[Rfam]
RNA: mir-275 microRNA precursor family
Nucleotides: 085
Stems, first nucleotide, its partner, number of pairs: 009078003014073001016071007030056003035052004
Number, partner (000 for none) and nucleotide at each position: 001000g002000a003000g004000c005000g006000g007000g008000c009078g010077g011076c012000g013000c014073c015000g016071c017070g018069c019068g020067c021066u022065a023000c024000u025000c026000u027000g028000g029000c030056g031055c032054c033000g034000g035052g036051g037050c038049u039000g040000u041000u042000c043000u044000c045000a046000c047000g048000g049038a050037g051036u052035c053000a054032g055031g056030u057000a058000c059000c060000u061000g062000a063000a064000g065022u066021a067020g068019c069018g070017c071016g072000c073014g074000g075000a076011g077010c078009c079000u080000c081000c082000g083000c084000u085000a